[Rfam]
L2-Alphaproteobacteria ribosomal protein leader: a 64-nucleotide RNA. The sequence is in the family's curated seed alignment.
RNA sequence: GGGGAGCUUCGGCGCCCUAUACCCGCGGGUGGCAACACCCGUGCAAGCAAACGGAAGACAGAGA
Numbered sequence: 001g002g003g004g005a006g007c008u009u010c011g012g013c014g015c016c017c018u019a020u021a022c023c024c025g026c027g028g029g030u031g032g033c034a035a036c037a038c039c040c041g042u043g044c045a046a047g048c049a050a051a052c053g054g055a056a057g058a059c060a061g062a063g064a
Stems, first nucleotide, its partner, number of pairs: 001023002004020001006015002024043007